[Rfam]
The family of this 68-nucleotide sequence is "Small nucleolar RNA SNORD110". Its family is annotated with nucleolus and RNA processing in the Gene Ontology. Its Rfam clan is "SNORD110 clan". The family's RNA type in Rfam is C/D-box small nucleolar RNA.
Nucleotides: 068
Stems, first nucleotide, its partner, number of pairs: 001068004
Number, partner (000 for none) and nucleotide at each position: 001068u002067u003066g004065c005000a006000a007000u008000g009000a010000u011000g012000a013000c014000u015000u016000a017000u018000a019000u020000a021000u022000c023000u024000g025000u026000c027000a028000a029000u030000c031000c032000c033000c034000u035000g036000a037000g038000a039000g040000a041000u042000c043000a044000c045000u046000g047000a048000c049000g050000a051000c052000u053000c054000c055000a056000u057000g058000u059000g060000u061000c062000u063000g064000a065004g066003c067002a068001a